RNA sequence: GGUCAUGAGUCCCAGCGUCAAGCCCCGGCUUGCUGGGCGGCAACCCUCCUCGCGGUGGGGUGCCCCGGGUGAUGACACGGCCGACCCCGACCGGGGCGGCAAGCGCGAAGC
Numbered sequence: 001g002g003u004c005a006u007g008a009g010u011c012c013c014a015g016c017g018u019c020a021a022g023c024c025c026c027g028g029c030u031u032g033c034u035g036g037g038c039g040g041c042a043a044c045c046c047u048c049c050u051c052g053c054g055g056u057g058g059g060g061u062g063c064c065c066c067g068g069g070u071g072a073u074g075a076c077a078c079g080g081c082c083g084a085c086c087c088c089g090a091c092c093g094g095g096g097c098g099g100c101a102a103g104c105g106c107g108a109a110g111c
Base pairs, nucleotide, nucleotide: 002076003075004074009038011037012036013035014034015033016032021030022029039064040063041062044060045059046058048055049054080100081099082098083097085096086095087094088093